[Rfam]
RNA sequence: UUAAUUGCUCCGCCGUUAUUAUUAGGCAAAACCGUCUGUACCGAGCCUUUACCAAAAGACUGUUGGCCCAUGAUGACGGCCCUUUUUUGGUCUUGCAGAGCACCCGCGACAAUUUCCGAUGCCGAUGCAGACCCACCAUUAAUUAAUACAACGAUAGGAGCGCCUUUAAUAGAGUCACCUGGCUUUGCUUUAAACCGCAUUUUUGAAUUUUCAACUCGACCUUCGGUAUAGACAAUCAAACCUGAGGUUAAAAAGGCAUCGCUAACCGCAACCGCCGCGUUUAGAAGACCGCCGGGGUUAUUCCUUAG
Numbered sequence: 001u002u003a004a005u006u007g008c009u010c011c012g013c014c015g016u017u018a019u020u021a022u023u024a025g026g027c028a029a030a031a032c033c034g035u036c037u038g039u040a041c042c043g044a045g046c047c048u049u050u051a052c053c054a055a056a057a058g059a060c061u062g063u064u065g066g067c068c069c070a071u072g073a074u075g076a077c078g079g080c081c082c083u084u085u086u087u088u089g090g091u092c093u094u095g096c097a098g099a100g101c102a103c104c105c106g107c108g109a110c111a112a113u114u115u116c117c118g119a120u121g122c123c124g125a126u127g128c129a130g131a132c133c134c135a136c137c138a139u140u141a142a143u144u145a146a147u148a149c150a151a152c153g154a155u156a157g158g159a160g161c162g163c164c165u166u167u168a169a170u171a172g173a174g175u176c177a178c179c180u181g182g183c184u185u186u187g188c189u190u191u192a193a194a195c196c197g198c199a200u201u202u203u204u205g206a207a208u209u210u211u212c213a214a215c216u217c218g219a220c221c222u223u224c225g226g227u228a229u230a231g232a233c234a235a236u237c238a239a240a241c242c243u244g245a246g247g248u249u250a251a252a253a254a255g256g257c258a259u260c261g262c263u264a265a266c267c268g269c270a271a272c273c274g275c276c277g278c279g280u281u282u283a284g285a286a287g288a289c290c291g292c293c294g295g296g297g298u299u300a301u302u303c304c305u306u307a308g
Stems, first nucleotide, its partner, number of pairs: 006300002010296002012164001014162004019157003025152001026149001028147001041066004047058004072081001074079001088135003093130005100122003104118001106116001170182001171180002186199003189193001201286008210264001213263001215261001222255002227250002268275002
The family of this 308-nucleotide sequence from Cycloclasticus sp. symbiont of Poecilosclerida sp. M is "Rickettsia sRNA47". A search with the family's covariance model found it, with a score of 64 bits. The literature on the family includes a 2016 paper in Front Microbiol by Schroeder et al., "Identification and Characterization of Novel Small RNAs in Rickettsia prowazekii". Rfam's curators write: Expressed in human microvascular endothelial cells (HMEC) infected with Rickettsia. Taxonomically the source falls in Cycloclasticus (Bacteria, Pseudomonadati, Pseudomonadota, Gammaproteobacteria).